This 145-nucleotide sequence from Gossypium armourianum belongs to the Rfam family "MIR7502 microRNA precursor family". Lineage of the source: Eukaryota > Embryophyta > Euphyllophyta > Spermatophyta > Gossypium.

[Rfam]
RNA sequence: CAUUAAAAAUUUCAUUUAUUUCUACUGUUAAAAAUUAGUUCAUGUAUGUCAACAUGAGGUACACAUGGCAGGUCAUGAGUCAUUGUUUGGUUAUUUUGUCAACCAUGCCAACUUUUAACACUAGAAAUGGAUAAAAUUUCCAACA
Dot-bracket structure: ..((..((((((.(((.(((((((.(.((((((...............................................................................)))))).).))))))).))).))))))..))..
Numbered sequence: 001c002a003u004u005a006a007a008a009a010u011u012u013c014a015u016u017u018a019u020u021u022c023u024a025c026u027g028u029u030a031a032a033a034a035u036u037a038g039u040u041c042a043u044g045u046a047u048g049u050c051a052a053c054a055u056g057a058g059g060u061a062c063a064c065a066u067g068g069c070a071g072g073u074c075a076u077g078a079g080u081c082a083u084u085g086u087u088u089g090g091u092u093a094u095u096u097u098g099u100c101a102a103c104c105a106u107g108c109c110a111a112c113u114u115u116u117a118a119c120a121c122u123a124g125a126a127a128u129g130g131a132u133a134a135a136a137u138u139u140c141c142a143a144c145a
Stems, first nucleotide, its partner, number of pairs: 003143002007139006014132003018128007026120001028118006